[Rfam]
Nucleotides: 078
Base pairs, nucleotide, nucleotide: 001078002077003076004075005074
Number, partner (000 for none) and nucleotide at each position: 001078g002077u003076g004075u005074g006000a007000a008000u009000g010000a011000u012000g013000a014000a015000a016000a017000a018000g019000u020000g021000a022000u023000u024000g025000g026000a027000u028000u029000c030000c031000c032000a033000u034000u035000g036000a037000u038000g039000c040000a041000a042000c043000a044000a045000u046000c047000u048000a049000a050000u051000u052000u053000u054000g055000c056000a057000a058000c059000c060000a061000a062000c063000u064000a065000u066000u067000u068000u069000u070000u071000u072000g073000a074005c075004a076003c077002a078001c
A member of the RNA family "Small nucleolar RNA R12" from Taxus chinensis, 78 nucleotides long. It is annotated as a C/D-box small nucleolar RNA. snoR12 is a C/D box small nucleolar RNA, which acts as a methylation guide for 25S ribosomal RNA in plants. snoR12 has been alternatively named snoZ44 in Arabidopsis and snoZ131 in rice. It scores 43 bits against the family's covariance model. A reference for the family is Chen et al. (2003), "The high diversity of snoRNAs in plants: identification and comparative study of 120 snoRNA genes from Oryza sativa", Nucleic Acids Res. Rfam links the family to the GO terms nucleolus and RNA processing.